[Rfam]
Shown here is a 196-nucleotide RNA from a Mycoplasmatota bacterium, a member of the family "T-box leader". Its family is annotated with tRNA binding in the Gene Ontology. It scores 108 bits against the family's covariance model. The organism belongs to Mycoplasmatota, within Bacteria. On this family, see Winkler et al., RNA 2001: "The GA motif: an RNA element common to bacterial antitermination systems, rRNA, and eukaryotic RNAs". The base pairs follow the family's consensus structure, which is taken from published work.

RNA sequence: UAUAUUGCGAUGACGAAGAUAAGUAAGAAUACUAUUAUUGUUAGAGAGUCCUGAUGGUGAAAAUGGAUAAUUAAUAAUUUCUGAAAGCUACUUCUGAGUAUAGUAUAAAAUACUACCUUGAUCGGGUUAAGAGUUUUUGAAGGUGCAUAACGUAAGUUAUGAACUAAGGUGGUACCGCGUAUAACACGUCCUUAGA
Numbered sequence: 001u002a003u004a005u006u007g008c009g010a011u012g013a014c015g016a017a018g019a020u021a022a023g024u025a026a027g028a029a030u031a032c033u034a035u036u037a038u039u040g041u042u043a044g045a046g047a048g049u050c051c052u053g054a055u056g057g058u059g060a061a062a063a064u065g066g067a068u069a070a071u072u073a074a075u076a077a078u079u080u081c082u083g084a085a086a087g088c089u090a091c092u093u094c095u096g097a098g099u100a101u102a103g104u105a106u107a108a109a110a111u112a113c114u115a116c117c118u119u120g121a122u123c124g125g126g127u128u129a130a131g132a133g134u135u136u137u138u139g140a141a142g143g144u145g146c147a148u149a150a151c152g153u154a155a156g157u158u159a160u161g162a163a164c165u166a167a168g169g170u171g172g173u174a175c176c177g178c179g180u181a182u183a184a185c186a187c188g189u190c191c192u193u194a195g196a
Stems, first nucleotide, its partner, number of pairs: 007099002015094004026082004037071003048068004102114005116126003146161006166193004177189004